Background: Rfam assigns this 139-nucleotide RNA from Mesobacillus persicus to the family "c-di-AMP riboswitch aptamer (ydaO/yuaA leader)". The match comes from Rfam's covariance-model search (90 bits).
Nucleotides: 139
Base pairs, nucleotide, nucleotide: 011124012123013122018027019026028119029118030117031116032115033114038061062104063103064102070080071079072078083098084097085096086095
Number, partner (000 for none) and nucleotide at each position: 001000g002000u003000u004000u005000c006000u007000a008000a009000a010000u011124c012123g013122c014000c015000g016000a017000a018027a019026c020000c021000u022000c023000a024000g025000u026019g027018u028119g029118c030117g031116g032115g033114g034000g035000a036000a037000c038061c039000a040000u041000c042000u043000g044000g045000a046000u047000u048000c049000a050000a051000u052000c053000g054000a055000a056000u057000c058000c059000a060000a061038g062104g063103g064102g065000u066000g067000a068000a069000u070080c071079c072078u073000u074000u075000u076000a077000u078072a079071g080070g081000u082000a083098g084097g085096g086095c087000u088000a089000c090000u091000c092000a093000u094000g095086g096085c097084c098083c099000g100000a101000a102064u103063c104062c105000g106000a107000c108000a109000g110000c111000u112000a113000a114033c115032c116031u117030c118029g119028u120000a121000a122013g123012c124011g125000u126000u127000a128000u129000a130000g131000a132000g133000a134000a135000a136000g137000a138000a139000g